[Rfam]
RNA: Archaeal RNase P
RNA sequence: GGGACCCGUCGGGGCAUGAGGAAAGUCCCCCCACCGCCCGGACGGGCGACCGGACGCAAGUCCGGAGCCGGAGACGGCUGGCGCUGGAACAGAAACGACACCCCCCGGCCCGACCGAUGAGGUCCGCGAACCGACCCGCGAGGGGAGGGAGUUAACCGACCGAGGGCCCCGAGACUCCGCGUCUCGCGACGGCCGGGAACGGAUGGAACGGCGAAUCCUCGCCGGUGCAAGUCCGCGCCGACGGGGCGCACACGCGCCCCCGAUGGUAGUCCGGCCGCCGCCUCGCGCGGCGAGGCGCGGACGCGUAGCCGAAUGUCGGGACGAACAGAAGGGGGCUUACUCCC
Numbered sequence: 001g002g003g004a005c006c007c008g009u010c011g012g013g014g015c016a017u018g019a020g021g022a023a024a025g026u027c028c029c030c031c032c033a034c035c036g037c038c039c040g041g042a043c044g045g046g047c048g049a050c051c052g053g054a055c056g057c058a059a060g061u062c063c064g065g066a067g068c069c070g071g072a073g074a075c076g077g078c079u080g081g082c083g084c085u086g087g088a089a090c091a092g093a094a095a096c097g098a099c100a101c102c103c104c105c106c107g108g109c110c111c112g113a114c115c116g117a118u119g120a121g122g123u124c125c126g127c128g129a130a131c132c133g134a135c136c137c138g139c140g141a142g143g144g145g146a147g148g149g150a151g152u153u154a155a156c157c158g159a160c161c162g163a164g165g166g167c168c169c170c171g172a173g174a175c176u177c178c179g180c181g182u183c184u185c186g187c188g189a190c191g192g193c194c195g196g197g198a199a200c201g202g203a204u205g206g207a208a209c210g211g212c213g214a215a216u217c218c219u220c221g222c223c224g225g226u227g228c229a230a231g232u233c234c235g236c237g238c239c240g241a242c243g244g245g246g247c248g249c250a251c252a253c254g255c256g257c258c259c260c261c262g263a264u265g266g267u268a269g270u271c272c273g274g275c276c277g278c279c280g281c282c283u284c285g286c287g288c289g290g291c292g293a294g295g296c297g298c299g300g301a302c303g304c305g306u307a308g309c310c311g312a313a314u315g316u317c318g319g320g321a322c323g324a325a326c327a328g329a330a331g332g333g334g335g336c337u338u339a340c341u342c343c344c
Stems, first nucleotide, its partner, number of pairs: 002344001003342002005320004010315001023338003027335005032227004045223005050065005066079005080218002085214001087212001101202002104197007122160002231302009